[Rfam]
RNA: 7SK RNA
Organism: Sinosuthora webbiana
RNA sequence: GGAUAUGAGGGUAAUCUGGCUGUGAGAUCUGAUAUGCAUGGGUUGAUCUGACUGAUCUGGCUAGCUUAGGCAGGUGCUCGCUUUCUUUCCUGGCAUUCCAUGUGUGUUCCUCCUGGUGCUCUGUGCUUGGUUAAUGAGGACAGCCUCCCCAAUAGACAUGGUUCUUUGGGCAAAGGUGUGUGGUAGCUGUGCUCCCUUGCUGGAAGCUCUGAGUAAGCUCAAGGUCCAUUUGUAGAUGAAUGUAAGGUAGUCAAGCAUACAAUACUGAAGAUUUAUCCAAUUGAGAAGCUGCAUGCAGCAGUCUGCCAGUGGCU
Numbered sequence: 001g002g003a004u005a006u007g008a009g010g011g012u013a014a015u016c017u018g019g020c021u022g023u024g025a026g027a028u029c030u031g032a033u034a035u036g037c038a039u040g041g042g043u044u045g046a047u048c049u050g051a052c053u054g055a056u057c058u059g060g061c062u063a064g065c066u067u068a069g070g071c072a073g074g075u076g077c078u079c080g081c082u083u084u085c086u087u088u089c090c091u092g093g094c095a096u097u098c099c100a101u102g103u104g105u106g107u108u109c110c111u112c113c114u115g116g117u118g119c120u121c122u123g124u125g126c127u128u129g130g131u132u133a134a135u136g137a138g139g140a141c142a143g144c145c146u147c148c149c150c151a152a153u154a155g156a157c158a159u160g161g162u163u164c165u166u167u168g169g170g171c172a173a174a175g176g177u178g179u180g181u182g183g184u185a186g187c188u189g190u191g192c193u194c195c196c197u198u199g200c201u202g203g204a205a206g207c208u209c210u211g212a213g214u215a216a217g218c219u220c221a222a223g224g225u226c227c228a229u230u231u232g233u234a235g236a237u238g239a240a241u242g243u244a245a246g247g248u249a250g251u252c253a254a255g256c257a258u259a260c261a262a263u264a265c266u267g268a269a270g271a272u273u274u275a276u277c278c279a280a281u282u283g284a285g286a287a288g289c290u291g292c293a294u295g296c297a298g299c300a301g302u303c304u305g306c307c308a309g310u311g312g313c314u
Stems, first nucleotide, its partner, number of pairs: 001099003006093001008091004014084001018082002024079003027075005033069001035063001037059002041057004045052001107161002111156002113130004118126002131152002138148003186256003192250002195247006207238001210235001213233005279314001281312001285307001288302005